[Rfam]
Rfam assigns this 55-nucleotide RNA sequence from Downingia elegans to the family "Plastid-psbA-3 3UTR RNA". The family's consensus secondary structure was predicted with LocARNA. The sequence is in the family's curated seed alignment. From the family's description: Plastid psbA-3 is a non-coding RNA (ncRNA) present in plastids. It was identified in inverted repeat sequences in the 3 prime untranslate region (3UTR) of photosystem II quinone-binding protein (psbA).
RNA sequence: AACGGAGCAAUAACCCCCCUUGUUCUAACAAAAGGGCGUUAUUGUUCCUCCUUUU
Numbered sequence: 001a002a003c004g005g006a007g008c009a010a011u012a013a014c015c016c017c018c019c020u021u022g023u024u025c026u027a028a029c030a031a032a033a034g035g036g037c038g039u040u041a042u043u044g045u046u047c048c049u050c051c052u053u054u055u
Stems, first nucleotide, its partner, number of pairs: 004048011017034001020031003

Lineage of the source: Eukaryota > Tracheophyta > Euphyllophyta > campanulids > Downingia. A reference for the family is Richter et al. (2023), "Retrograde signaling in plants: A critical review focusing on the GUN pathway and beyond", Plant Commun.